[Rfam]
Shown here is a 105-nucleotide RNA from Ectothiorhodospiraceae bacterium 2226, a member of the family "t44 RNA". On this family, see Tjaden et al., Nucleic Acids Res 2002: "Transcriptome analysis of Escherichia coli using high-density oligonucleotide probe arrays". It scores 56 bits against the family's covariance model.
RNA sequence: CGGAGUAUCCGCCUAAUCCACACACGCGUCCGCAACGUCGGUGCCGGGGUGCCCCCGCCAACUUAUGAGCAGGGGGUCGGCCCGCGGGAUGCGUGGAGGCCCAAC
Numbered sequence: 001c002g003g004a005g006u007a008u009c010c011g012c013c014u015a016a017u018c019c020a021c022a023c024a025c026g027c028g029u030c031c032g033c034a035a036c037g038u039c040g041g042u043g044c045c046g047g048g049g050u051g052c053c054c055c056c057g058c059c060a061a062c063u064u065a066u067g068a069g070c071a072g073g074g075g076g077u078c079g080g081c082c083c084g085c086g087g088g089a090u091g092c093g094u095g096g097a098g099g100c101c102c103a104a105c
Stems, first nucleotide, its partner, number of pairs: 023095008036086003041083001043081004051077005